[Rfam]
RNA sequence: ACUCACAAAGAAGGAGUUCUCUUGGCAGUGUCGGUGUGUUUUAGACUGCGUUCUGUCAUGACGGCCUUCCGGAGAAAUCGUGUUGGCGAAGGUAUCAGAUCAGUAUGGGAUUGCUAGCUCACGACAGUCUUCGCCUUUGCAAAAGGCCACCGUGGCGCACCGAUGCUUCUGGUCGACGUUGGAAGCAGUAUUGGGACCCAUCUCGAGUUGGAGUCAAAGCUUUGUGCUUGUCUGAUACUGUGGACGGCCCUUCCAUCGAGUUGAGGAUCGUGCUUUUAGGUCGCACUGGUGGGGCUGGGUUGUAGCAUUGGAUCUAGGACAGGCUUAGUUGGCGAGGUAGUCCUGGCUGUCCUCUCUCCUGAAAAUGGUGUGGAGGUCAGCCCCCC
Dot-bracket structure: ..................................................................................................................................................................................................((((((........))).))).((((.....)))).............................................................................................................................................................
Source information: The record is a 386-nucleotide part of an RNA from Fusarium irregulare, which matches "Ascomycota telomerase RNA" in Rfam. It is annotated as a non-coding RNA gene. Lineage of the source: Eukaryota > saccharomyceta > Sordariomycetes > Hypocreales > Fusarium incarnatum-equiseti species complex. The family is grouped with related families in Rfam's "Telomerase clan". The family has 4 seed sequences and 475 matches in Rfam 15.1. The literature on the family includes a 2013 paper in Nucleic Acids Res by Qi et al., "The common ancestral core of vertebrate and fungal telomerase RNAs". The pairing is the family consensus, mapped onto this sequence.